The record is a 108-nucleotide RNA from Pasteurella felis, which matches "Glycine riboswitch aptamer" in Rfam.
RNA sequence: GGACGAACCCUUGGAGAGAGCUGUGUAAGUGCAGCCGCCGAAGGCGCAAAAGAGCGGUGAGUUUUUGCCGUUUUUCAAACGCUCAGGCAAAAGGACAGGGGCAGAAGA
Numbered sequence: 001g002g003a004c005g006a007a008c009c010c011u012u013g014g015a016g017a018g019a020g021c022u023g024u025g026u027a028a029g030u031g032c033a034g035c036c037g038c039c040g041a042a043g044g045c046g047c048a049a050a051a052g053a054g055c056g057g058u059g060a061g062u063u064u065u066u067g068c069c070g071u072u073u074u075u076c077a078a079a080c081g082c083u084c085a086g087g088c089a090a091a092a093g094g095a096c097a098g099g100g101g102c103a104g105a106a107g108a
Stems, first nucleotide, its partner, number of pairs: 008101006020035004037088003040084002044082003050075011